[Rfam]
RNA sequence: GCUGGAGUUGCGCGGAAAGUAGUUGCGAAACACGAAACCGCGGCACUGAUCGAUCACGUGAAACAACGGGUUCCAGGCGAACAUGGCCAGCAUCCAUCCGCCCAGCGCAUUGCCUACGAACAUCUUGCCCGAGAAGAUCAUGUUCAUCCGGCG
Number, nucleotide and partner (000 for none) at each position: 001g000002c000003u034004g033005g000006a000007g031008u030009u029010g000011c027012g026013c025014g024015g023016a000017a000018a000019g000020u000021a000022g000023u015024u014025g013026c012027g011028a000029a009030a008031c007032a000033c004034g003035a000036a000037a000038c000039c000040g054041c052042g051043g050044c000045a000046c000047u000048g000049a000050u043051c042052g041053a000054u040055c000056a000057c000058g000059u000060g000061a000062a000063a000064c153065a000066a000067c150068g149069g000070g082071u081072u080073c079074c000075a000076g000077g000078c000079g073080a072081a071082c070083a000084u000085g000086g147087c000088c000089a144090g143091c142092a141093u140094c000095c000096a000097u134098c133099c131100g130101c000102c000103c127104a126105g125106c000107g123108c000109a000110u119111u118112g117113c000114c000115u000116a000117c112118g111119a110120a000121c000122a000123u107124c000125u105126u104127g103128c000129c000130c100131g099132a000133g098134a097135a000136g000137a000138u000139c000140a093141u092142g091143u090144u089145c000146a000147u086148c000149c068150g067151g000152c000153g064
Background:
A member of the RNA family "Ruegeria cis2 sRNA" from Ruegeria arenilitoris, 153 nucleotides long. Rfam links the family to the GO term regulation of gene expression. Rfam classes the family as a small RNA.